[Rfam]
RNA sequence: UUUGUUGCCGCGCUGAAUUCCCGAAUGGGGAAGCGGGGGACCCAUACCUGGGGUGAAACGCAUUUGUCGCGUGGGGCGCCUUUCAGCCCUAACCCGUCAGCUAACCUCGCAAGCGUCAUGAAAGGAGUG
Numbered sequence: 001u002u003u004g005u006u007g008c009c010g011c012g013c014u015g016a017a018u019u020c021c022c023g024a025a026u027g028g029g030g031a032a033g034c035g036g037g038g039g040a041c042c043c044a045u046a047c048c049u050g051g052g053g054u055g056a057a058a059c060g061c062a063u064u065u066g067u068c069g070c071g072u073g074g075g076g077c078g079c080c081u082u083u084c085a086g087c088c089c090u091a092a093c094c095c096g097u098c099a100g101c102u103a104a105c106c107u108c109g110c111a112a113g114c115g116u117c118a119u120g121a122a123a124g125g126a127g128u129g
Base pairs, nucleotide, nucleotide: 011115012114013113014112018032019031020030033110034109035108036107037106038105043050044049051095052094053093059071060070061069074089075088076087077086

Source information: The family of this 129-nucleotide RNA from Alicyclobacillus hesperidum is "c-di-AMP riboswitch aptamer (ydaO/yuaA leader)". The pairing is the family consensus, mapped onto this sequence. Taxonomically the source falls in Alicyclobacillus (Bacteria, Bacillota, Caryophanales, Alicyclobacillaceae).